[Rfam]
A member of the RNA family "Histone 3' UTR stem-loop" from Gymnodraco acuticeps, 46 nucleotides long. Rfam classes the family as a cis-regulatory element. NCBI's taxonomy places the organism under Eukaryota, Eumetazoa, Acanthomorphata, Notothenioidei, Gymnodraco. The match comes from Rfam's covariance-model search (43 bits). About the family: The mRNAs of metazoan histone genes lack a poly-A tail. 3' end processing occurs at a site between a highly conserved stem-loop (modelled by this family) and a purine rich region around 20 nts downstream (the histone downstream element, or HDE).
RNA sequence: ACAACGGCUCUUUUAAGAGCCACAUACAUUUUCAAAGAGUUGCAAU
Numbered sequence: 001a002c003a004a005c006g007g008c009u010c011u012u013u014u015a016a017g018a019g020c021c022a023c024a025u026a027c028a029u030u031u032u033c034a035a036a037g038a039g040u041u042g043c044a045a046u
Stems, first nucleotide, its partner, number of pairs: 006021006